[Rfam]
Background
Rfam assigns this 81-nucleotide RNA sequence from Henriciella mobilis to the family "ZMP/ZTP riboswitch aptamer (pfl RNA motif)". The source organism's lineage runs through Bacteria, Pseudomonadota, Alphaproteobacteria, Hyphomonadales and Henriciella.
RNA sequence: GCUUCGCUGCGUAACUGGCGCAUGAGGUGGAUCACCACCGGGGAACGCGGCACGGACAUGCCGGGCGCCUGGGCAUCAACC
Numbered sequence: 001g002c003u004u005c006g007c008u009g010c011g012u013a014a015c016u017g018g019c020g021c022a023u024g025a026g027g028u029g030g031a032u033c034a035c036c037a038c039c040g041g042g043g044a045a046c047g048c049g050g051c052a053c054g055g056a057c058a059u060g061c062c063g064g065g066c067g068c069c070u071g072g073g074c075a076u077c078a079a080c081c
Stems, first nucleotide, its partner, number of pairs: 003054001006051007015042002017069005027038004058076005
A search with the family's covariance model found it, with a score of 63 bits.